This 200-nucleotide sequence from Medicago truncatula belongs to the Rfam family "MIR2619 microRNA precursor family". The family's consensus secondary structure was predicted with RNAalifold.

RNA sequence: AAACAACCGCCUAUGUAUUGGAUCUUUGGCAGUUUUGGCCACAAGGCCACUUUUGACCUAGUCUUCGCUGACGUGGCGCCCAUAUCCCUUAAGUGAGGUGCCACGUGUCGACCAUUGUCGAUGUCACGUCAGCGAAGACUAAGUCAAAAGUGGUCUUGGGGGCUAAAAGUGUCAAAGAUCCAAUACAUAGGGGGCUGUUU
Numbered sequence: 001a002a003a004c005a006a007c008c009g010c011c012u013a014u015g016u017a018u019u020g021g022a023u024c025u026u027u028g029g030c031a032g033u034u035u036u037g038g039c040c041a042c043a044a045g046g047c048c049a050c051u052u053u054u055g056a057c058c059u060a061g062u063c064u065u066c067g068c069u070g071a072c073g074u075g076g077c078g079c080c081c082a083u084a085u086c087c088c089u090u091a092a093g094u095g096a097g098g099u100g101c102c103a104c105g106u107g108u109c110g111a112c113c114a115u116u117g118u119c120g121a122u123g124u125c126a127c128g129u130c131a132g133c134g135a136a137g138a139c140u141a142a143g144u145c146a147a148a149a150g151u152g153g154u155c156u157u158g159g160g161g162g163c164u165a166a167a168a169g170u171g172u173c174a175a176a177g178a179u180c181c182a183a184u185a186c187a188u189a190g191g192g193g194g195c196u197g198u199u200u
Base pairs, nucleotide, nucleotide: 001200002199004197005196007194008193012189013188014187015186016185017184018183019182020181021180022179023178024177025176026175027174028173029172030171031170033168034167035166036165037164038163039162040161042158043157044156071129072128074126075125076124077123078122080120
Taxonomically the source falls in Medicago (Eukaryota, Streptophyta, Euphyllophyta, Trifolieae). Rfam links the family to the GO terms RISC complex and miRNA-mediated post-transcriptional gene silencing.